[Rfam]
RNA sequence: CAUUGUUUUGUAGAGGUGUAUGGCACAAGAGAUGGGAAAUGGUUUUUCCCAAUACUGUUUCUCUCUCUUGUUCCAUACAUCAUCUAGAGAACAUAAU
Numbered sequence: 001c002a003u004u005g006u007u008u009u010g011u012a013g014a015g016g017u018g019u020a021u022g023g024c025a026c027a028a029g030a031g032a033u034g035g036g037a038a039a040u041g042g043u044u045u046u047u048c049c050c051a052a053u054a055c056u057g058u059u060u061c062u063c064u065c066u067c068u069u070g071u072u073c074c075a076u077a078c079a080u081c082a083u084c085u086a087g088a089g090a091a092c093a094u095a096a097u
Base pairs, nucleotide, nucleotide: 005092006091007090008089009088011086012085013084014083015081016080017079018078019077020076021075022074023073025071026070027069028068029067030066031065032064034063035062036061037060038059039058040057041056
Shown here is a 97-nucleotide RNA from Lupinus angustifolius, a member of the family "MIR1507 microRNA precursor family". It scores 78 bits against the family's covariance model. Lineage of the source: Eukaryota > Spermatophyta > rosids > Papilionoideae > Lupinus. Its family is annotated with miRNA-mediated post-transcriptional gene silencing and RISC complex in the Gene Ontology.